[Rfam]
RNA sequence: CAACGUCACACGGGAGAAUUUCGGUACGACACUCGCCGCACUCUGGCAGGCCACGCCGAAACGCCGAAGGAGCAACACUCCCCGGAAUCUCUCAGGCACCCGGACCGUGUGACCUAG
Dot-bracket structure: .....((((((((.....(((((((.............................))))))).(((((..(((...(.......)....))))).))).......)))))))).....
Numbered sequence: 001c002a003a004c005g006u007c008a009c010a011c012g013g014g015a016g017a018a019u020u021u022c023g024g025u026a027c028g029a030c031a032c033u034c035g036c037c038g039c040a041c042u043c044u045g046g047c048a049g050g051c052c053a054c055g056c057c058g059a060a061a062c063g064c065c066g067a068a069g070g071a072g073c074a075a076c077a078c079u080c081c082c083c084g085g086a087a088u089c090u091c092u093c094a095g096g097c098a099c100c101c102g103g104a105c106c107g108u109g110u111g112a113c114c115u116a117g
Stems, first nucleotide, its partner, number of pairs: 006112008019061007063097003066093002070091003076084001